RNA sequence: CAAUUAGGUUAUAUGGUGAUGGCUGUAGGUCAGACUAAGGCUUACAUAAAAUCUUUCUAUGUGCUGGGAACUCCUAAAGCUUUAAAUACUUGCUCUUAAAGGGUAAUGUGAUAGUUUUAAAGAUGUAAUAAUGGACAAUCAGCAGGAAACCAAAUUAUUACUUUACCAGAAUAAAAGUAGGGAUCCUCAGAGACUACACGAAAGAAGUAAAUAGAUUCUUUUCAUUUAUUUAUUAAGAUAUAGUCCAAUCAAUCAUGAAAGUGAUUG
Numbered sequence: 001c002a003a004u005u006a007g008g009u010u011a012u013a014u015g016g017u018g019a020u021g022g023c024u025g026u027a028g029g030u031c032a033g034a035c036u037a038a039g040g041c042u043u044a045c046a047u048a049a050a051a052u053c054u055u056u057c058u059a060u061g062u063g064c065u066g067g068g069a070a071c072u073c074c075u076a077a078a079g080c081u082u083u084a085a086a087u088a089c090u091u092g093c094u095c096u097u098a099a100a101g102g103g104u105a106a107u108g109u110g111a112u113a114g115u116u117u118u119a120a121a122g123a124u125g126u127a128a129u130a131a132u133g134g135a136c137a138a139u140c141a142g143c144a145g146g147a148a149a150c151c152a153a154a155u156u157a158u159u160a161c162u163u164u165a166c167c168a169g170a171a172u173a174a175a176a177g178u179a180g181g182g183a184u185c186c187u188c189a190g191a192g193a194c195u196a197c198a199c200g201a202a203a204g205a206a207g208u209a210a211a212u213a214g215a216u217u218c219u220u221u222u223c224a225u226u227u228a229u230u231u232a233u234u235a236a237g238a239u240a241u242a243g244u245c246c247a248a249u250c251a252a253u254c255a256u257g258a259a260a261g262u263g264a265u266u267g
Stems, first nucleotide, its partner, number of pairs: 001022001003020004027036002052205004057200001062144006072135003145186002150181002156173004190246001192245005208232009252265005
RNA: Group I catalytic intron
Organism: Pyrrhoderma noxium